[Rfam]
RNA: Alphaproteobacteria transfer-messenger RNA
Organism: Ruegeria marisrubri
RNA sequence: CCGCUUGCAAUGGCCACAGGCGCUUACUAUAUUUCGAUCGUUCGCAAGAACUAUGGACAUAAACGCGCUCGUAAUAAGCGGAUCGGACCCGGGGGCGGUACCCGGCGGCUCCACCAAAAUCCCAUCAUUGGCGGGACAGCGGGGCCGAAACAGGAUCGACGAACGUGUAAAGGGGUUUGCUUUGUCCCGGUGAGGUACCACCGUUAUCGGUCCGUAAAGCAUAAUUGCCAAUGACAAUCGUGCUCCGGUUGCAGUUGCUGCGUAAGCGGUAACAAGACCGAAAACUUAAGCCCUUGCGCCUAGCCGCGUAAGGCGGGGUUCGCAGGUACCUGGCAACAGAAACCUGCAUU
Numbered sequence: 001c002c003g004c005u006u007g008c009a010a011u012g013g014c015c016a017c018a019g020g021c022g023c024u025u026a027c028u029a030u031a032u033u034u035c036g037a038u039c040g041u042u043c044g045c046a047a048g049a050a051c052u053a054u055g056g057a058c059a060u061a062a063a064c065g066c067g068c069u070c071g072u073a074a075u076a077a078g079c080g081g082a083u084c085g086g087a088c089c090c091g092g093g094g095g096c097g098g099u100a101c102c103c104g105g106c107g108g109c110u111c112c113a114c115c116a117a118a119a120u121c122c123c124a125u126c127a128u129u130g131g132c133g134g135g136a137c138a139g140c141g142g143g144g145c146c147g148a149a150a151c152a153g154g155a156u157c158g159a160c161g162a163a164c165g166u167g168u169a170a171a172g173g174g175g176u177u178u179g180c181u182u183u184g185u186c187c188c189g190g191u192g193a194g195g196u197a198c199c200a201c202c203g204u205u206a207u208c209g210g211u212c213c214g215u216a217a218a219g220c221a222u223a224a225u226u227g228c229c230a231a232u233g234a235c236a237a238u239c240g241u242g243c244u245c246c247g248g249u250u251g252c253a254g255u256u257g258c259u260g261c262g263u264a265a266g267c268g269g270u271a272a273c274a275a276g277a278c279c280g281a282a283a284a285c286u287u288a289a290g291c292c293c294u295u296g297c298g299c300c301u302a303g304c305c306g307c308g309u310a311a312g313g314c315g316g317g318g319u320u321c322g323c324a325g326g327u328a329c330c331u332g333g334c335a336a337c338a339g340a341a342a343c344c345u346g347c348a349u350u
Stems, first nucleotide, its partner, number of pairs: 040051004055187005065180002067176004079165002083162003089105005106147007188203004194213002197211003316331004322347006